[Rfam]
RNA sequence: AUGUAAAUAAAGCCGAAUCCUGCAGGUUUUCGCAGGUACGGGGGAUGCAAAACAUUUUGGGGUGAAGCCGCCCGAAGGCGGCCGGGAAAAGCUCCUUCCCGAACCCGUCAGCUAACCUCGGAGGCUAUAAGGAGGGAUCAU
Numbered sequence: 001a002u003g004u005a006a007a008u009a010a011a012g013c014c015g016a017a018u019c020c021u022g023c024a025g026g027u028u029u030u031c032g033c034a035g036g037u038a039c040g041g042g043g044g045a046u047g048c049a050a051a052a053c054a055u056u057u058u059g060g061g062g063u064g065a066a067g068c069c070g071c072c073c074g075a076a077g078g079c080g081g082c083c084g085g086g087a088a089a090a091g092c093u094c095c096u097u098c099c100c101g102a103a104c105c106c107g108u109c110a111g112c113u114a115a116c117c118u119c120g121g122a123g124g125c126u127a128u129a130a131g132g133a134g135g136g137a138u139c140a141u
Stems, first nucleotide, its partner, number of pairs: 011126004019036005039120005048059002060106003068081004084100004